[Rfam]
The record is a 131-nucleotide RNA sequence from Myotis lucifugus, which matches "Small nucleolar RNA SNORA51" in Rfam. NCBI's taxonomy places the organism under Eukaryota, Deuterostomia, Vertebrata, Tetrapoda, Myotis.
RNA sequence: GGCCUCCUGGUGCUUACAACAGGCUGUGUUAUCACACUGACUGUAAGAAAUAGGAGGCCAAGUAAACCUACCCUAUAUACACCUCAGCUCAGGCCCUUUGCCUAGUCUGUAUUGUGAAUGGGAAGACACUG
Dot-bracket structure: .(((((((...........(((...((((....))))...)))........))))))).............(((((........(((.(.((((.....)))).).)))........))))).........

It is annotated as an H/ACA-box small nucleolar RNA. Rfam describes the family as follows. ACA51 is a member of the H/ACA class of snoRNA that guide the sites of modification of uridines to pseudouridines.